[Rfam]
Rfam assigns this 355-nucleotide part of an RNA from Lacticaseibacillus saniviri to the family "Bacterial small subunit ribosomal RNA".
RNA sequence: GGCGUAAAGCGAGCGCAGGCGGUUUCUUAAGUCUGAUGUGAAAGCCCUCGGCUCAACCGAGGAAGUGCAUCGGAAACUGGGAAACUUGAGUGCAGAAGAGGACAGUGGAACUCCAUGUGUAGCGGUGGAAUGCGUAGAUAUAUGGAAGAACACCAGUGGCGAAGGCGGCUGUCUGGUCUGUAACUGACGCUGAGGCUCGAAAGCAUGGGUAGCGAACAGGAUUAGAUACCCUGGUAGUCCAUGCCGUAAACGAUGAAUACUAAGUGUUGGAGGGUUUCCGCCCUUCAGUGCUGCAGCUAACGCAUUAAGUAUUCCGCCUGGGGAGUACGACCGCAAGGUUGAAACUCAAAGGAAU
Numbered sequence: 001g002g003c004g005u006a007a008a009g010c011g012a013g014c015g016c017a018g019g020c021g022g023u024u025u026c027u028u029a030a031g032u033c034u035g036a037u038g039u040g041a042a043a044g045c046c047c048u049c050g051g052c053u054c055a056a057c058c059g060a061g062g063a064a065g066u067g068c069a070u071c072g073g074a075a076a077c078u079g080g081g082a083a084a085c086u087u088g089a090g091u092g093c094a095g096a097a098g099a100g101g102a103c104a105g106u107g108g109a110a111c112u113c114c115a116u117g118u119g120u121a122g123c124g125g126u127g128g129a130a131u132g133c134g135u136a137g138a139u140a141u142a143u144g145g146a147a148g149a150a151c152a153c154c155a156g157u158g159g160c161g162a163a164g165g166c167g168g169c170u171g172u173c174u175g176g177u178c179u180g181u182a183a184c185u186g187a188c189g190c191u192g193a194g195g196c197u198c199g200a201a202a203g204c205a206u207g208g209g210u211a212g213c214g215a216a217c218a219g220g221a222u223u224a225g226a227u228a229c230c231c232u233g234g235u236a237g238u239c240c241a242u243g244c245c246g247u248a249a250a251c252g253a254u255g256a257a258u259a260c261u262a263a264g265u266g267u268u269g270g271a272g273g274g275u276u277u278c279c280g281c282c283c284u285u286c287a288g289u290g291c292u293g294c295a296g297c298u299a300a301c302g303c304a305u306u307a308a309g310u311a312u313u314c315c316g317c318c319u320g321g322g323g324a325g326u327a328c329g330a331c332c333g334c335a336a337g338g339u340u341g342a343a344a345c346u347c348a349a350a351g352g353a354a355u
Stems, first nucleotide, its partner, number of pairs: 001318003009315001011198004016192001018191003022085007030078002032074009046062006089185003092181005100174007107151001112146007122133003159166002203244006212238002217233004255314006263292012296303002320347003329340004